[Rfam]
RNA sequence: CAAACGUGGAGACCAGAAACCACGCGAAAAACGGGGCGAAACCGAAAAGCCAUACGAAUAGGAAAAUC
Number, nucleotide and partner (000 for none) at each position: 001c000002a000003a000004a000005c000006g023007u022008g021009g020010a000011g000012a000013c000014c000015a000016g000017a000018a000019a000020c009021c008022a007023c006024g000025c000026g000027a000028a000029a000030a000031a000032c000033g000034g000035g051036g050037c049038g000039a000040a000041a000042c062043c061044g000045a000046a000047a000048a000049g037050c036051c035052a000053u000054a000055c000056g000057a000058a000059u000060a000061g043062g042063a000064a000065a000066a000067u000068c000
RNA: DUF805 RNA